The record is a 71-nucleotide RNA sequence from Pardalotus punctatus, which matches "tRNA" in Rfam. Pairs were carried over by alignment from the consensus structure, which is taken from published work. The organism belongs to Pardalotus, within Eukaryota. It scores 48 bits against the family's covariance model.

RNA sequence: UAGGAAAUAAUAUAAGGGGAGUAUGGAAGAUUUUGAUUCCUUUUGUGCAGGUUCAAUGCCUGUUUUCCUAA
Numbered sequence: 001u002a003g004g005a006a007a008u009a010a011u012a013u014a015a016g017g018g019g020a021g022u023a024u025g026g027a028a029g030a031u032u033u034u035g036a037u038u039c040c041u042u043u044u045g046u047g048c049a050g051g052u053u054c055a056a057u058g059c060c061u062g063u064u065u066u067c068c069u070a071a
Stems, first nucleotide, its partner, number of pairs: 001070007010024004026042002029039002047063005